[Rfam]
RNA sequence: AAAUCAUCAUGAUGGUCAAAGCUCAUGGGAAUUGUAUGCUUUUUUGGUGUACAAUUUUCUAGAGUUU
Numbered sequence: 001a002a003a004u005c006a007u008c009a010u011g012a013u014g015g016u017c018a019a020a021g022c023u024c025a026u027g028g029g030a031a032u033u034g035u036a037u038g039c040u041u042u043u044u045u046g047g048u049g050u051a052c053a054a055u056u057u058u059c060u061a062g063a064g065u066u067u
Base pairs, nucleotide, nucleotide: 019067020066021065022064023063024062033053034052035051036050037049038048
Record summary
A member of the RNA family "Streptococcus sRNA Spd-sr37" from Streptococcus sp. X16XC17, 67 nucleotides long. On this family, see Tsui et al., J Bacteriol 2010: "Identification and characterization of noncoding small RNAs in Streptococcus pneumoniae serotype 2 strain D39". The base pairs follow the family's consensus structure, which was predicted with WAR. The organism belongs to Streptococcus, within Bacteria. The match comes from Rfam's covariance-model search (81 bits). It is annotated as a small RNA.